[Rfam]
RNA sequence: AAAUGAAAGCAGAAGCACCCGCUUCUCGCCUUAGUGAAGAUAUUGCUGGGCAGAAUAGUUAGAUCGCUUGUUUACAAGCUGAUUUUGCGCGCGGGUUCGAAUUCGAACUCGUUUUUUUAUUGCUUU
Dot-bracket structure: ..........((((((....)))))).(((...(..(.....)..)..))).......................................(((((((((....)))))))))..............

Background
Rfam assigns this 126-nucleotide sequence from Enterococcus dispar to the family "Ribosomal protein L20 leader". The base pairs follow the family's consensus structure, which was predicted with CMfinder. The literature on the family includes a 1994 paper in Prog Nucleic Acid Res Mol Biol by Zengel and Lindahl, "Diverse mechanisms for regulating ribosomal protein synthesis in Escherichia coli". About the family: This family is a putative r-protein leader autoregulatory structure found in B. subtilis and other low-GC Gram-positive bacteria. It is located in the 5' untranslated regions of mRNAs encoding initiation factor 3 followed by ribosomal proteins L35 and L20 (infC-rpmI-rplT). The family's RNA type in Rfam is cis-regulatory leader.